[Rfam]
Rfam assigns this 82-nucleotide RNA from Miniimonas arenae to the family "ZMP/ZTP riboswitch aptamer (pfl RNA motif)".
The base pairs follow the family's consensus structure, which is taken from published work.
Taxonomically the source falls in Miniimonas (Bacteria, Bacillati, Actinomycetota, Actinomycetes).
RNA sequence: GCCGCGGGCCGUGACUGGCGAACCGGUGGAGCACCACCGGGGAGCGGCCCAGUGCUGGGUGAGUCGCACGGCGGCUCGAGAC
Number, nucleotide and partner (000 for none) at each position: 001g000002c000003c000004g000005c000006g050007g049008g048009c047010c046011g045012u044013g000014a000015c041016u040017g072018g000019c070020g069021a000022a000023c000024c000025g000026g037027u036028g035029g034030a000031g000032c000033a000034c029035c028036a027037c026038c000039g000040g016041g015042g000043a000044g012045c011046g010047g009048c008049c007050c006051a000052g000053u000054g000055c000056u000057g000058g000059g000060u000061g077062a076063g075064u074065c073066g000067c000068a000069c020070g019071g000072c017073g065074g064075c063076u062077c061078g000079a000080g000081a000082c000